[Rfam]
RNA sequence: CCUUUAGAGUGUCAUAUCAAACGAAAGUAGCUUAUGCAAAAUCGGACACGUUGAAAAAGGAA
Numbered sequence: 001c002c003u004u005u006a007g008a009g010u011g012u013c014a015u016a017u018c019a020a021a022c023g024a025a026a027g028u029a030g031c032u033u034a035u036g037c038a039a040a041a042u043c044g045g046a047c048a049c050g051u052u053g054a055a056a057a058a059g060g061a062a
Stems, first nucleotide, its partner, number of pairs: 001060005009049005022044003030037002

A member of the RNA family "RAGATH-18 RNA" from Clostridium pasteurianum, 62 nucleotides long. Actinobacteria, Firmicutes, Fusobacteria, Thermotogae (1 example). Rfam classes the family as a small RNA.